[Rfam]
The family of this 111-nucleotide sequence from Pseudomonas sp. HPB0071 is "Pseudomon-groES RNA". Rfam classes the family as a cis-regulatory element.

Nucleotides: 111
Base pairs, nucleotide, nucleotide: 010019011018012017021035022034023033024032025031026030044064045063046062047061048060049059050058051057067079068078069077070076093111094110095109096108097107098106
Number, partner (000 for none) and nucleotide at each position: 001000g002000u003000a004000g005000c006000g007000g008000a009000c010019a011018c012017c013000g014000u015000a016000a017012g018011g019010u020000u021035c022034u023033u024032g025031c026030c027000a028000u029000u030026g031025g032024c033023a034022g035021g036000c037000u038000g039000a040000a041000u042000u043000c044064g045063c046062a047061c048060c049059u050058u051057g052000c053000a054000u055000u056000g057051c058050a059049g060048g061047g062046u063045g064044c065000a066000c067079c068078c069077g070076g071000c072000g073000a074000a075000g076070c077069c078068g079067g080000u081000u082000a083000a084000a085000a086000c087000a088000a089000a090000a091000c092000a093111g094110c095109c096108g097107g098106u099000g100000g101000u102000c103000u104000u105000c106098a107097c108096c109095g110094g111093u